The record is a 309-nucleotide sequence from Gasterosteus aculeatus, which matches "Nuclear RNase P" in Rfam.
Rfam classes the family as a ribozyme.
The family is grouped with related families in Rfam's "RNaseP clan".
The family has 116 seed sequences and 3,848 matches in Rfam 15.1.
Rfam's curators put it in the seed alignment.
Rfam's curators write: Ribonuclease P (RNase P) is a ubiquitous endoribonuclease, found in archaea, bacteria and eukarya as well as chloroplasts and mitochondria. Its best characterised activity is the generation of mature 5'-ends of tRNAs by cleaving the 5'-leader elements of precursor-tRNAs. Cellular RNase Ps are ribonucleoproteins.
RNA sequence: GUGGGCGGAAGCUCAUUGUAGAGGUCACAUGCUGAGUGCUCGUCACUCCACCAAUCACCUCGGGGAAGGUCUGAGACAAGAGCCAAUAGUUACCCUUGCAGGGUGUCACCUGAUUCGGGUGAGCGAGUGAACAGAAAACAUGGGUCUGUGAGAGCAGCUGUCGCAGGAGAAGCUGUGUGGCGCAGUUUGUCAGCGCCAUUCAGUGGAUGUGGCGCUCUCCGGCUUGGAAUCGCUUGCGGCUGGCGUAUGAGUGCGAUGUAUGAGGUGGGGCACAGCUCCAGAACCCAAUUCAGACUACUCUCCUCCCAC
Numbered sequence: 001g002u003g004g005g006c007g008g009a010a011g012c013u014c015a016u017u018g019u020a021g022a023g024g025u026c027a028c029a030u031g032c033u034g035a036g037u038g039c040u041c042g043u044c045a046c047u048c049c050a051c052c053a054a055u056c057a058c059c060u061c062g063g064g065g066a067a068g069g070u071c072u073g074a075g076a077c078a079a080g081a082g083c084c085a086a087u088a089g090u091u092a093c094c095c096u097u098g099c100a101g102g103g104u105g106u107c108a109c110c111u112g113a114u115u116c117g118g119g120u121g122a123g124c125g126a127g128u129g130a131a132c133a134g135a136a137a138a139c140a141u142g143g144g145u146c147u148g149u150g151a152g153a154g155c156a157g158c159u160g161u162c163g164c165a166g167g168a169g170a171a172g173c174u175g176u177g178u179g180g181c182g183c184a185g186u187u188u189g190u191c192a193g194c195g196c197c198a199u200u201c202a203g204u205g206g207a208u209g210u211g212g213c214g215c216u217c218u219c220c221g222g223c224u225u226g227g228a229a230u231c232g233c234u235u236g237c238g239g240c241u242g243g244c245g246u247a248u249g250a251g252u253g254c255g256a257u258g259u260a261u262g263a264g265g266u267g268g269g270g271c272a273c274a275g276c277u278c279c280a281g282a283a284c285c286c287a288a289u290u291c292a293g294a295c296u297a298c299u300c301u302c303c304u305c306c307c308a309c
Base pairs, nucleotide, nucleotide: 001309002308003307004306007303008302009301012264013263014262015261016260021061022060023059024058034048035047036046037045038044071293072292073291074290075289081241082240083239084238091105092104093103094102095101106122107121108120109119110118111117123237124236125235126234127233128232129231143223266280267279268278269277270276271275